[Rfam]
RNA: Bacteroidetes FopS (family of paralogous sRNAs)
RNA sequence: GUGUUUUUCAUGGUAUUAGAUUUAAGGUUAAUGAAGAUUGGGAGUCUGGGAAGAUUCCCUUUUUUGUUU
Dot-bracket structure: .......................................(((((((......)))))))..........
Numbered sequence: 001g002u003g004u005u006u007u008u009c010a011u012g013g014u015a016u017u018a019g020a021u022u023u024a025a026g027g028u029u030a031a032u033g034a035a036g037a038u039u040g041g042g043a044g045u046c047u048g049g050g051a052a053g054a055u056u057c058c059c060u061u062u063u064u065u066g067u068u069u
Stems, first nucleotide, its partner, number of pairs: 040059007